[Rfam]
RNA sequence: GGAGGUGGCUGAGGUCUGGUGGCUUCCCUGGUCUUCAAAACCAGUGGCCUGCCGUAGGCGGGUUGUGGGUUCGAUUCCCAUCCCCCUCC
Numbered sequence: 001g002g003a004g005g006u007g008g009c010u011g012a013g014g015u016c017u018g019g020u021g022g023c024u025u026c027c028c029u030g031g032u033c034u035u036c037a038a039a040a041c042c043a044g045u046g047g048c049c050u051g052c053c054g055u056a057g058g059c060g061g062g063u064u065g066u067g068g069g070u071u072c073g074a075u076u077c078c079c080a081u082c083c084c085c086c087u088c089c
Base pairs, nucleotide, nucleotide: 001089002088003087004086005085007083008082011026012025013024014023015022016021028044029043030042031041032040047063048062049061050060051059066080067079068078069077

This 89-nucleotide RNA sequence from Noviherbaspirillum pedocola belongs to the Rfam family "Selenocysteine transfer RNA". Taxonomically the source falls in Noviherbaspirillum (Bacteria, Pseudomonadota, Betaproteobacteria, Oxalobacteraceae). The literature on the family includes a 2000 paper in FEBS Lett by Mizutani and Goto, "Eukaryotic selenocysteine tRNA has the 9/4 secondary structure".